RNA sequence: GGUCUGUUGGUGAAGCGGUUAACACACAUGGUUUUCAUCCAUGCACGCACGGGUUCGAUUCCCGUACAGACUG
Number, nucleotide and partner (000 for none) at each position: 001g072002g071003u070004c069005u068006g067007u066008u000009g000010g025011u024012g023013a000014a000015g000016c000017g000018g000019u000020u000021a000022a000023c012024a011025c010026a000027c043028a042029u041030g040031g039032u000033u000034u000035u000036c000037a000038u000039c031040c030041a029042u028043g027044c000045a000046c000047g000048c000049a065050c064051g063052g062053g061054u000055u000056c000057g000058a000059u000060u000061c053062c052063c051064g050065u049066a007067c006068a005069g004070a003071c002072u001073g000